[Rfam]
RNA sequence: UCACUCGAGGAGCGUUGCGAGAGGUCUCAUCCUCCCAGGCUCGGGUGGCCCGUUCCCCGGGCUCUUCAACGGCGCUCGCGAAUC
Numbered sequence: 001u002c003a004c005u006c007g008a009g010g011a012g013c014g015u016u017g018c019g020a021g022a023g024g025u026c027u028c029a030u031c032c033u034c035c036c037a038g039g040c041u042c043g044g045g046u047g048g049c050c051c052g053u054u055c056c057c058c059g060g061g062c063u064c065u066u067c068a069a070c071g072g073c074g075c076u077c078g079c080g081a082a083u084c
Base pairs, nucleotide, nucleotide: 002047003046004045005044006043007042008041021034022033023032024031